[Rfam]
RNA sequence: UGAUGUUCUCGGGGCGGGGUGAAAUUCCCCACCGGCGGUGAUGCCCGACCAACUGGUCAGGGACAAGCCCGCGAGCGCCUGGACCUCGGUCCAGGGUCUGCAGAGAUCGGUGAGAUUCCGAGGCCGACGGUCACAGUCCGGAUGCGAGAGAACGCGC
Numbered sequence: 001u002g003a004u005g006u007u008c009u010c011g012g013g014g015c016g017g018g019g020u021g022a023a024a025u026u027c028c029c030c031a032c033c034g035g036c037g038g039u040g041a042u043g044c045c046c047g048a049c050c051a052a053c054u055g056g057u058c059a060g061g062g063a064c065a066a067g068c069c070c071g072c073g074a075g076c077g078c079c080u081g082g083a084c085c086u087c088g089g090u091c092c093a094g095g096g097u098c099u100g101c102a103g104a105g106a107u108c109g110g111u112g113a114g115a116u117u118c119c120g121a122g123g124c125c126g127a128c129g130g131u132c133a134c135a136g137u138c139c140g141g142a143u144g145c146g147a148g149a150g151a152a153c154g155c156g157c
Stems, first nucleotide, its partner, number of pairs: 004154007017029003031137002033126002035072004067124002075101003107121004128140003
RNA: FMN riboswitch aptamer (RFN element)